[Rfam]
RNA sequence: AGCCACUGAUGACAUUAUUACUAUUUCUGACACCUCGUAUGAACGCUGCAUUGCGGCGUCUGAUUUGGAAUAAUGGUCUGAGGCUC
Numbered sequence: 001a002g003c004c005a006c007u008g009a010u011g012a013c014a015u016u017a018u019u020a021c022u023a024u025u026u027c028u029g030a031c032a033c034c035u036c037g038u039a040u041g042a043a044c045g046c047u048g049c050a051u052u053g054c055g056g057c058g059u060c061u062g063a064u065u066u067g068g069a070a071u072a073a074u075g076g077u078c079u080g081a082g083g084c085u086c
Stems, first nucleotide, its partner, number of pairs: 001085004045057005